[Rfam]
RNA sequence: UAAUCUAUCCGGAGUAAAUCUCUAUAUAGUUAUGGCAGAUCUAUACCUGACCAUUAAAAAUCACUCAUUAAAAUUACUAUGUGAACAAUAACUUUUUAAAGU
Number, nucleotide and partner (000 for none) at each position: 001u000002a000003a000004u100005c000006u098007a097008u000009c000010c000011g000012g000013a000014g089015u088016a000017a000018a000019u084020c000021u000022c000023u081024a080025u079026a000027u076028a075029g074030u073031u072032a000033u000034g000035g000036c000037a000038g000039a000040u000041c000042u000043a000044u000045a000046c000047c000048u000049g000050a000051c000052c000053a000054u000055u000056a000057a000058a000059a000060a000061u000062c000063a000064c000065u000066c000067a000068u000069u000070a000071a000072a031073a030074u029075u028076a027077c000078u000079a025080u024081g023082u000083g000084a019085a000086c000087a000088a015089u014090a000091a000092c000093u000094u000095u000096u000097u007098a006099a000100a004101g000102u000
Rfam assigns this 102-nucleotide sequence from Populus tomentosa to the family "MIR480 microRNA precursor family". NCBI's taxonomy places the organism under Eukaryota, Euphyllophyta, Magnoliopsida, Pentapetalae, Populus. The family has 69 seed sequences and 3,070 matches in Rfam 15.1. Rfam links the family to the GO terms RISC complex and miRNA-mediated post-transcriptional gene silencing.